[Rfam]
RNA sequence: CAGGUUGUCCCGUGCAGCAGCCAGACCCCCGACCCGGUUGCUGUGCGGGACAUCCUU
Numbered sequence: 001c002a003g004g005u006u007g008u009c010c011c012g013u014g015c016a017g018c019a020g021c022c023a024g025a026c027c028c029c030c031g032a033c034c035c036g037g038u039u040g041c042u043g044u045g046c047g048g049g050a051c052a053u054c055c056u057u
Base pairs, nucleotide, nucleotide: 002056003055004054007051008050009049010048011047012046013045014044015043016042017041018040019039020038021037022036
Annotation: This 57-nucleotide sequence from Rhodococcus spelaei belongs to the Rfam family "F6 TB sRNA". It is annotated as a small RNA. On this family, see Arnvig and Young, Mol Microbiol 2009: "Identification of small RNAs in Mycobacterium tuberculosis".